[Rfam]
RNA sequence: CAGUGCUCCGGGGUCGGUGAAAGUCCGAACCGGCGGUGACAGUCCGCGAGCCGAGGCAACGGCAUCCAUCGUUCGAAGGGUGUCAGCCGAGGUUGAGCCGGUGGAAUUCCGGCACCGACGGUGAUGAUCUGUUCAGUUCGCAGCUGAGCGGUCAGAGUCCGGAUGGGAGGCAGCACGC
Numbered sequence: 001c002a003g004u005g006c007u008c009c010g011g012g013g014u015c016g017g018u019g020a021a022a023g024u025c026c027g028a029a030c031c032g033g034c035g036g037u038g039a040c041a042g043u044c045c046g047c048g049a050g051c052c053g054a055g056g057c058a059a060c061g062g063c064a065u066c067c068a069u070c071g072u073u074c075g076a077a078g079g080g081u082g083u084c085a086g087c088c089g090a091g092g093u094u095g096a097g098c099c100g101g102u103g104g105a106a107u108u109c110c111g112g113c114a115c116c117g118a119c120g121g122u123g124a125u126g127a128u129c130u131g132u133u134c135a136g137u138u139c140g141c142a143g144c145u146g147a148g149c150g151g152u153c154a155g156a157g158u159c160c161g162g163a164u165g166g167g168a169g170g171c172a173g174c175a176c177g178c
Stems, first nucleotide, its partner, number of pairs: 003176005008169001015027003031117002033047004042115002050093003097113005119161003

FMN riboswitch aptamer (RFN element): a 178-nucleotide RNA sequence from Humibacter ginsenosidimutans. The match comes from Rfam's covariance-model search (73 bits). Rfam's curators write: The RFN element is a highly conserved domain that is found frequently in the 5'-untranslated regions of prokaryotic mRNAs that encode for flavin mononucleotide (FMN) biosynthesis and transport proteins.